Notes
This 107-nucleotide sequence from Cellulomonas sp. WB94 belongs to the Rfam family "Actinobacteria sRNA Ms_IGR-7". Rfam classes the family as a small RNA. The base pairs follow the family's consensus structure. Rfam 15.1 lists 463 matches to the family in 194 species. NCBI's taxonomy places the organism under Bacteria, Bacillati, Actinomycetota, Actinomycetes, Cellulomonas. On this family, see Li et al., RNA 2013: "Identification of small RNAs in Mycobacterium smegmatis using heterologous Hfq". It scores 48 bits against the family's covariance model.
RNA sequence: UGGAAGGUGCUCCUCGAACUGGCUGAUCUGGACCUCGACAAUCCACAUCAUCCCAGGUCAGGAGCACUUUUCACGUCCACGGCACGCCACCGGGGUGAAAUCUCGAG
Numbered sequence: 001u002g003g004a005a006g007g008u009g010c011u012c013c014u015c016g017a018a019c020u021g022g023c024u025g026a027u028c029u030g031g032a033c034c035u036c037g038a039c040a041a042u043c044c045a046c047a048u049c050a051u052c053c054c055a056g057g058u059c060a061g062g063a064g065c066a067c068u069u070u071u072c073a074c075g076u077c078c079a080c081g082g083c084a085c086g087c088c089a090c091c092g093g094g095g096u097g098a099a100a101u102c103u104c105g106a107g
Stems, first nucleotide, its partner, number of pairs: 002072012016059002019056004024050004029045001031043002102107001